The family of this 63-nucleotide RNA sequence from Bacillaceae bacterium SAS-127 is "RAGATH-18 RNA".
[Rfam]
RNA sequence: UUUGUGGAGGUGUCAUACCAAAUGUGAGUAGCUUCGGCAAAAGCAGGCACGUUGAAGCAAAAA
Numbered sequence: 001u002u003u004g005u006g007g008a009g010g011u012g013u014c015a016u017a018c019c020a021a022a023u024g025u026g027a028g029u030a031g032c033u034u035c036g037g038c039a040a041a042a043g044c045a046g047g048c049a050c051g052u053u054g055a056a057g058c059a060a061a062a063a
Stems, first nucleotide, its partner, number of pairs: 001061005010050005023045003031038002
It scores 61 bits against the family's covariance model. Actinobacteria, Firmicutes, Fusobacteria, Thermotogae (1 example). The organism belongs to Bacillaceae, within Bacteria. It is annotated as a small RNA.